[Rfam]
RNA sequence: UCGUCAGGCUCAGUCCCCUCCCGAUAAACCCCUAAAUAGGGACCUUCCCGGGUCCCUGCCCGGGAUU
Numbered sequence: 001u002c003g004u005c006a007g008g009c010u011c012a013g014u015c016c017c018c019u020c021c022c023g024a025u026a027a028a029c030c031c032c033u034a035a036a037u038a039g040g041g042a043c044c045u046u047c048c049c050g051g052g053u054c055c056c057u058g059c060c061c062g063g064g065a066u067u
Base pairs, nucleotide, nucleotide: 004064005063007061008060010058013056017052018051019050023047024046026045030041031040032039033038